This 562-nucleotide part of an RNA from Apis florea belongs to the Rfam family "Eukaryotic large subunit ribosomal RNA".

[Rfam]
RNA sequence: CCCUCCGAAGUUUCCCUCAGGAUAGCUGGCACUCGACCGUUUCUCAUCGAACGCGUACGAGUCUCAUCUGGUAAAGCGAAUGAUUAGAGGCCUUGGGGCCGAAACGACCUCAACCUAUUCUCAAACUUUAAAUGGGUGAGAUCUCUGGCUUGCUUGGAUCAUGAAGCCACGAGAUUUUGGAUCAGAGUGCCAAGUGGGCCAAUUUUGGUAAGCAGAACUGGCGCUGUGGGAUGAACCAAACGCAGAGUUAAGGCGCCUAAGUCGACGCUUAUGGGAUACCAUGAAAGGCGUUGGUUGCUUAAGACAGCAGGACGGUGGCCAUGGAAGUCGGAAUCCGCUAAGGAGUGUGUAACAACUCACCUGCCGAAGCAACUAGCCCUGAAAAUGGAUGGCGCUGAAGCGUCGCGCCUAUACUCCGCCGUCAGCGGCAAGUGGGGAGGCACGUGAGUCCCGCUCUCGGGUGGGACCGUCCUCCAUGAAGCCCUGACGAGUAGGAGGGUCGCGGCGGUGUGCGCAGAAGGGUCUGGGCGUGAGCCUGCCUGGAGCCGCCGUCGGUGCAGAU
Numbered sequence: 001c002c003c004u005c006c007g008a009a010g011u012u013u014c015c016c017u018c019a020g021g022a023u024a025g026c027u028g029g030c031a032c033u034c035g036a037c038c039g040u041u042u043c044u045c046a047u048c049g050a051a052c053g054c055g056u057a058c059g060a061g062u063c064u065c066a067u068c069u070g071g072u073a074a075a076g077c078g079a080a081u082g083a084u085u086a087g088a089g090g091c092c093u094u095g096g097g098g099c100c101g102a103a104a105c106g107a108c109c110u111c112a113a114c115c116u117a118u119u120c121u122c123a124a125a126c127u128u129u130a131a132a133u134g135g136g137u138g139a140g141a142u143c144u145c146u147g148g149c150u151u152g153c154u155u156g157g158a159u160c161a162u163g164a165a166g167c168c169a170c171g172a173g174a175u176u177u178u179g180g181a182u183c184a185g186a187g188u189g190c191c192a193a194g195u196g197g198g199c200c201a202a203u204u205u206u207g208g209u210a211a212g213c214a215g216a217a218c219u220g221g222c223g224c225u226g227u228g229g230g231a232u233g234a235a236c237c238a239a240a241c242g243c244a245g246a247g248u249u250a251a252g253g254c255g256c257c258u259a260a261g262u263c264g265a266c267g268c269u270u271a272u273g274g275g276a277u278a279c280c281a282u283g284a285a286a287g288g289c290g291u292u293g294g295u296u297g298c299u300u301a302a303g304a305c306a307g308c309a310g311g312a313c314g315g316u317g318g319c320c321a322u323g324g325a326a327g328u329c330g331g332a333a334u335c336c337g338c339u340a341a342g343g344a345g346u347g348u349g350u351a352a353c354a355a356c357u358c359a360c361c362u363g364c365c366g367a368a369g370c371a372a373c374u375a376g377c378c379c380u381g382a383a384a385a386u387g388g389a390u391g392g393c394g395c396u397g398a399a400g401c402g403u404c405g406c407g408c409c410u411a412u413a414c415u416c417c418g419c420c421g422u423c424a425g426c427g428g429c430a431a432g433u434g435g436g437g438a439g440g441c442a443c444g445u446g447a448g449u450c451c452c453g454c455u456c457u458c459g460g461g462u463g464g465g466a467c468c469g470u471c472c473u474c475c476a477u478g479a480a481g482c483c484c485u486g487a488c489g490a491g492u493a494g495g496a497g498g499g500u501c502g503c504g505g506c507g508g509u510g511u512g513c514g515c516a517g518a519a520g521g522g523u524c525u526g527g528g529c530g531u532g533a534g535c536c537u538g539c540c541u542g543g544a545g546c547c548g549c550c551g552u553c554g555g556u557g558c559a560g561a562u
Stems, first nucleotide, its partner, number of pairs: 001499006011024001013022003027192007062141008074129001075127002081123003086118001088116003093113006100106001143173003146169006198222004203217005227238003242419002245416002248413001252409003261406001263405001266402003286380003290377010307364005313337003319331002338342001343358001347356002420489006427483003501557001503554008512546002520541002527536003